Notes
The record is an 81-nucleotide sequence from Myripristis murdjan, which matches "mir-219 microRNA precursor family" in Rfam. Taxonomically the source falls in Myripristis (Eukaryota, Eumetazoa, Actinopterygii, Holocentridae). The family's consensus secondary structure was predicted with RNAalifold. It scores 75 bits against the family's covariance model.
[Rfam]
RNA sequence: UUAGCGAUUGAUUGUCCAAACGCAAUUCUUGAGUAAAGUCAAAUUCAUCCCCAAGAAUUGUGUAUGGACAUCUGUUGCUGC
Numbered sequence: 001u002u003a004g005c006g007a008u009u010g011a012u013u014g015u016c017c018a019a020a021c022g023c024a025a026u027u028c029u030u031g032a033g034u035a036a037a038g039u040c041a042a043a044u045u046c047a048u049c050c051c052c053a054a055g056a057a058u059u060g061u062g063u064a065u066g067g068a069c070a071u072c073u074g075u076u077g078c079u080g081c
Stems, first nucleotide, its partner, number of pairs: 002080006010072003014069005021062011